RNA: Fluoride riboswitch aptamer (crcB RNA motif)
RNA sequence: UGUAGUCCGUGGAAUGGCGUUUCCACUAAUUCAAACCGCCGGCUGAAGCUGGCUGAUGACGCCUGCUUGAAA
Numbered sequence: 001u002g003u004a005g006u007c008c009g010u011g012g013a014a015u016g017g018c019g020u021u022u023c024c025a026c027u028a029a030u031u032c033a034a035a036c037c038g039c040c041g042g043c044u045g046a047a048g049c050u051g052g053c054u055g056a057u058g059a060c061g062c063c064u065g066c067u068u069g070a071a072a
Stems, first nucleotide, its partner, number of pairs: 010025004016063006038053006
Dot-bracket structure: .........[[[[..((((((]]]]............((((((....))))))....)))))).........